[Rfam]
RNA: ZMP/ZTP riboswitch aptamer (pfl RNA motif)
Organism: Saccharothrix coeruleofusca
RNA sequence: GGCCGCACUCGCGACUGGCGUGCCGAAGGUGGGAGCGACCACCGGGGAGCGGAGGCCGGAUCGCACCGCGCGCCUGGGUGCGACGG
Numbered sequence: 001g002g003c004c005g006c007a008c009u010c011g012c013g014a015c016u017g018g019c020g021u022g023c024c025g026a027a028g029g030u031g032g033g034a035g036c037g038a039c040c041a042c043c044g045g046g047g048a049g050c051g052g053a054g055g056c057c058g059g060a061u062c063g064c065a066c067c068g069c070g071c072g073c074c075u076g077g078g079u080g081c082g083a084c085g086g
Stems, first nucleotide, its partner, number of pairs: 003058001005056002009052004015046002017074005029042004063081005